[Rfam]
This 80-nucleotide RNA from Acanthosepion pharaonis belongs to the Rfam family "Mammalian CPEB3 ribozyme".

RNA sequence: UUAAGAUAGACGGGGUUCGCCGAAGGAGCGUUCAAGGCGCGGUCCUCGUCAGAUGUGUUCUCCCAUUUGCCAAUCAUUCC
Numbered sequence: 001u002u003a004a005g006a007u008a009g010a011c012g013g014g015g016u017u018c019g020c021c022g023a024a025g026g027a028g029c030g031u032u033c034a035a036g037g038c039g040c041g042g043u044c045c046u047c048g049u050c051a052g053a054u055g056u057g058u059u060c061u062c063c064c065a066u067u068u069g070c071c072a073a074u075c076a077u078u079c080c
Stems, first nucleotide, its partner, number of pairs: 013046003017042002022079003026075002028040003050069006

Lineage of the source: Eukaryota > Lophotrochozoa > Mollusca > Sepiida > Acanthosepion.